[Rfam]
RNA sequence: UUACAAUACGUUUUAACUAAUAAACUGUUUUGUCAUUCUCUGUCAAAUUGUUCUUUCUCGGAGAGGGAUAAAACAGUUUAUUAGUUAAAACGUUCUGUAAC
Numbered sequence: 001u002u003a004c005a006a007u008a009c010g011u012u013u014u015a016a017c018u019a020a021u022a023a024a025c026u027g028u029u030u031u032g033u034c035a036u037u038c039u040c041u042g043u044c045a046a047a048u049u050g051u052u053c054u055u056u057c058u059c060g061g062a063g064a065g066g067g068a069u070a071a072a073a074c075a076g077u078u079u080a081u082u083a084g085u086u087a088a089a090a091c092g093u094u095c096u097g098u099a100a101c
Base pairs, nucleotide, nucleotide: 001100002099003098004097005096011090012089013088014087015086016085017084018083019082020081021080022079023078024077025076026075027074028073029062030061031060032059035056042052044050045049
Dot-bracket structure: (((((.....((((((((((((((((((((((..(......(.((...)).)...)..))))..........)))))))))))))))))).....))))).
The family of this 101-nucleotide sequence from Plutella xylostella is "mir-8517 microRNA precursor family".